[Rfam]
RNA: Molybdenum/Tungsten riboswitch aptamer (Moco RNA motif)
RNA sequence: UUUAAAUAAUCUCUUCGAGUCCAAUUAACCUGCGGUAGUAAAUACAUGGAGAUUGGACCGACAGGGUAUGUUACGGGAAACCGGCAUGCCUCCCAUUGUGGAAAGAAGAGUGGUUUAUUGGUAA
Numbered sequence: 001u002u003u004a005a006a007u008a009a010u011c012u013c014u015u016c017g018a019g020u021c022c023a024a025u026u027a028a029c030c031u032g033c034g035g036u037a038g039u040a041a042a043u044a045c046a047u048g049g050a051g052a053u054u055g056g057a058c059c060g061a062c063a064g065g066g067u068a069u070g071u072u073a074c075g076g077g078a079a080a081c082c083g084g085c086a087u088g089c090c091u092c093c094c095a096u097u098g099u100g101g102a103a104a105g106a107a108g109a110g111u112g113g114u115u116u117a118u119u120g121g122u123a124a
Stems, first nucleotide, its partner, number of pairs: 006115001011110006019058008029049002034045001036044002064091008074083003092101002